A member of the RNA family "Glycine riboswitch aptamer" from Streptomyces mashuensis, 110 nucleotides long. The source organism's lineage runs through Bacteria, Bacillati, Actinomycetota, Streptomycetaceae and Streptomyces. It scores 65 bits against the family's covariance model. The literature on the family includes a 2004 paper in Science by Mandal et al., "A glycine-dependent riboswitch that uses cooperative binding to control gene expression".

RNA sequence: AGAAUCCGUGCGGGAGAGUCCCCGGGAAGCCCGUCCCACGGGCGGCGCCGGGGCGCCGAAGGAGCAAAUCCUCCCCGGAAUCUCUCAGGCACCCGUACCGCAUGGACGAG
Numbered sequence: 001a002g003a004a005u006c007c008g009u010g011c012g013g014g015a016g017a018g019u020c021c022c023c024g025g026g027a028a029g030c031c032c033g034u035c036c037c038a039c040g041g042g043c044g045g046c047g048c049c050g051g052g053g054c055g056c057c058g059a060a061g062g063a064g065c066a067a068a069u070c071c072u073c074c075c076c077g078g079a080a081u082c083u084c085u086c087a088g089g090c091a092c093c094c095g096u097a098c099c100g101c102a103u104g105g106a107c108g109a110g
Base pairs, nucleotide, nucleotide: 006105007104008103009102010101011100012099013098020053021052022051023050024049025048055090056089057088058086059085062084063083064082069077